Rfam assigns this 73-nucleotide RNA to the family "tRNA".

RNA sequence: GCCCCCAUCGUCUAGCGGUUCAGGACAUCUCUCUUUCAAGGAGACAACGGGGAUUCGACUUCCCCUGGGGGUA
Numbered sequence: 001g002c003c004c005c006c007a008u009c010g011u012c013u014a015g016c017g018g019u020u021c022a023g024g025a026c027a028u029c030u031c032u033c034u035u036u037c038a039a040g041g042a043g044a045c046a047a048c049g050g051g052g053a054u055u056c057g058a059c060u061u062c063c064c065c066u067g068g069g070g071g072u073a
Stems, first nucleotide, its partner, number of pairs: 001072007010026004028044005049065005
Overview: It is annotated as a transfer RNA.